Source information: The record is a 53-nucleotide sequence from Brassica oleracea, which matches "Plastid-ccsA-ndhD-2 3UTR RNA" in Rfam. It is annotated as a cis-regulatory element. Pairs were carried over by alignment from the consensus structure, which was predicted with LocARNA. NCBI's taxonomy places the organism under Eukaryota, Euphyllophyta, Magnoliopsida, Brassica, Brassica oleracea.
RNA sequence: UUUUUCAAAACCUUUUGAAUCAAGUAGUACAAUGAUUCAAAAGGUUCUCACAA
Numbered sequence: 001u002u003u004u005u006c007a008a009a010a011c012c013u014u015u016u017g018a019a020u021c022a023a024g025u026a027g028u029a030c031a032a033u034g035a036u037u038c039a040a041a042a043g044g045u046u047c048u049c050a051c052a053a
Stems, first nucleotide, its partner, number of pairs: 005050001007048001009046014
About this RNA:
Rfam's curators write: Plastid ccsA-ndhD-2 is a non-coding RNA (ncRNA) recognised in plastids. It was found in the three prime untranslated region (3UTR) of ccsA and ndhD genes, its 3UTR location suggests a role in transcript maturation.